[Rfam]
RNA sequence: AGCUUUGUGCAGUGGCAGUAUCAUAGCCAAUGAGGUUUAUCCAAGGUGUGAUUAUGGGUAAUUUAAAACAUUUCCCUGAUGAUUAGUAAUAUUGAACAUGCUUUUGUGCGUCUUUUGGCCAUCUGCAAAUAUUAUUUGGAAAAAAUGUCUAUUC
Numbered sequence: 001a002g003c004u005u006u007g008u009g010c011a012g013u014g015g016c017a018g019u020a021u022c023a024u025a026g027c028c029a030a031u032g033a034g035g036u037u038u039a040u041c042c043a044a045g046g047u048g049u050g051a052u053u054a055u056g057g058g059u060a061a062u063u064u065a066a067a068a069c070a071u072u073u074c075c076c077u078g079a080u081g082a083u084u085a086g087u088a089a090u091a092u093u094g095a096a097c098a099u100g101c102u103u104u105u106g107u108g109c110g111u112c113u114u115u116u117g118g119c120c121a122u123c124u125g126c127a128a129a130u131a132u133u134a135u136u137u138g139g140a141a142a143a144a145a146u147g148u149c150u151a152u153u154c
Base pairs, nucleotide, nucleotide: 020052021051022050023049024048026047027046028045034042035041089130092128093127094126096124098122099121144153145152146151